Background:
A member of the RNA family "Histone 3' UTR stem-loop" from Chanos chanos, 46 nucleotides long. About the family: The mRNAs of metazoan histone genes lack a poly-A tail. 3' end processing occurs at a site between a highly conserved stem-loop (modelled by this family) and a purine rich region around 20 nts downstream (the histone downstream element, or HDE). By type it is a cis-regulatory element.
RNA sequence: CUAAAGGCUCUUUUUAGAGCCACCCACAUUACUUGUUAAAAGCGAU
Number, nucleotide and partner (000 for none) at each position: 001c000002u000003a000004a000005a000006g021007g020008c019009u018010c017011u016012u000013u000014u000015u000016a011017g010018a009019g008020c007021c006022a000023c000024c000025c000026a000027c000028a000029u000030u000031a000032c000033u000034u000035g000036u000037u000038a000039a000040a000041a000042g000043c000044g000045a000046u000